[Rfam]
RNA: Mammalian CPEB3 ribozyme
RNA sequence: AGAAUUCCAAUGGGGGCCGUAGCAGGAGCGUUCAUGCCGUGACCCCUGUCAGAUUCCUUGAAUCUGCGAAUCCUGCU
Number, nucleotide and partner (000 for none) at each position: 001a000002g000003a000004a000005u000006u000007c000008c000009a000010a000011u000012g000013g046014g045015g044016g043017c000018c041019g000020u000021a077022g076023c075024a074025g073026g072027a071028g040029c039030g038031u000032u000033c000034a000035u000036g000037c000038c030039g029040u028041g018042a000043c016044c015045c014046c013047u000048g000049u000050c066051a065052g064053a063054u062055u061056c060057c000058u000059u000060g056061a055062a054063u053064c052065u051066g050067c000068g000069a000070a000071u027072c026073c025074u024075g023076c022077u021